[Rfam]
The record is a 548-nucleotide part of an RNA from Capnocytophaga canis, which matches "Bacterial large subunit ribosomal RNA" in Rfam.
A search with the family's covariance model found it, with a score of 2703 bits.
NCBI's taxonomy places the organism under Bacteria, Bacteroidota, Flavobacteriales, Flavobacteriaceae, Capnocytophaga.
Its family is annotated with structural constituent of ribosome and ribosome in the Gene Ontology.
RNA sequence: UAUGUAAGGGCGUAUGGGGGAUGCCUAGGCUCUCAGAGGCGAAGAAGGACGUGAUAAGCUGCGAAAAGCUGCGGGGAUUGGCACAUACGAGUUGAUCCGCAGAUAUCCGAAUGGGGCAACCCACUGCAUUGAAGGUGCAGUAUCCUGUUAAGGAGGCGAACCCGCUGAACUGAAACAUCUAAGUAGGCGGAGGAGAAGAAAACAAAAGUGAUUCCGAGAGUAGUGGCGAGCGAAAUUGGAAUAGCCCAAACCCAUAUUGUUACGGCAAUAUGGGGGUUGUAGGACCCGAUAUUGGUUGUUAUAUGGAACUAGAAGUGUUUGGAAAAUCACAUCAUAGAGCGUGAAAGUCGCGUAUAGGUAACGUAUAAUAAAUCAUAGGGAAAUCCUGAGUAGGGCGGGGCACGUGGAACCCUGUCUGAAUUUGCCGGGACCAUCCGGUAAGGCUAAAUACUCCUGAGAGACCGAUAGUGAACUAGUACCGUGAGGGAAAGGUGAAAAGAACCGUGAAUAACGGAGUGAAAAAGACCCUGAAACCAUACGCUUACAAG
Numbered sequence: 001u002a003u004g005u006a007a008g009g010g011c012g013u014a015u016g017g018g019g020g021a022u023g024c025c026u027a028g029g030c031u032c033u034c035a036g037a038g039g040c041g042a043a044g045a046a047g048g049a050c051g052u053g054a055u056a057a058g059c060u061g062c063g064a065a066a067a068g069c070u071g072c073g074g075g076g077a078u079u080g081g082c083a084c085a086u087a088c089g090a091g092u093u094g095a096u097c098c099g100c101a102g103a104u105a106u107c108c109g110a111a112u113g114g115g116g117c118a119a120c121c122c123a124c125u126g127c128a129u130u131g132a133a134g135g136u137g138c139a140g141u142a143u144c145c146u147g148u149u150a151a152g153g154a155g156g157c158g159a160a161c162c163c164g165c166u167g168a169a170c171u172g173a174a175a176c177a178u179c180u181a182a183g184u185a186g187g188c189g190g191a192g193g194a195g196a197a198g199a200a201a202a203c204a205a206a207a208g209u210g211a212u213u214c215c216g217a218g219a220g221u222a223g224u225g226g227c228g229a230g231c232g233a234a235a236u237u238g239g240a241a242u243a244g245c246c247c248a249a250a251c252c253c254a255u256a257u258u259g260u261u262a263c264g265g266c267a268a269u270a271u272g273g274g275g276g277u278u279g280u281a282g283g284a285c286c287c288g289a290u291a292u293u294g295g296u297u298g299u300u301a302u303a304u305g306g307a308a309c310u311a312g313a314a315g316u317g318u319u320u321g322g323a324a325a326a327u328c329a330c331a332u333c334a335u336a337g338a339g340c341g342u343g344a345a346a347g348u349c350g351c352g353u354a355u356a357g358g359u360a361a362c363g364u365a366u367a368a369u370a371a372a373u374c375a376u377a378g379g380g381a382a383a384u385c386c387u388g389a390g391u392a393g394g395g396c397g398g399g400g401c402a403c404g405u406g407g408a409a410c411c412c413u414g415u416c417u418g419a420a421u422u423u424g425c426c427g428g429g430a431c432c433a434u435c436c437g438g439u440a441a442g443g444c445u446a447a448a449u450a451c452u453c454c455u456g457a458g459a460g461a462c463c464g465a466u467a468g469u470g471a472a473c474u475a476g477u478a479c480c481g482u483g484a485g486g487g488a489a490a491g492g493u494g495a496a497a498a499g500a501a502c503c504g505u506g507a508a509u510a511a512c513g514g515a516g517u518g519a520a521a522a523a524g525a526c527c528c529u530g531a532a533a534c535c536a537u538a539c540g541c542u543u544a545c546a547a548g
Stems, first nucleotide, its partner, number of pairs: 008543010023528001024492002028463002030460007037452002039157002047108003050063003069102007078090003113122003123141007143154004161192001162190005172179002202209002212448001213240005223231002243445004251274007281387003285380003289376001296371010309357003315330003319326001333337001339351003393417008424439005479486002502514004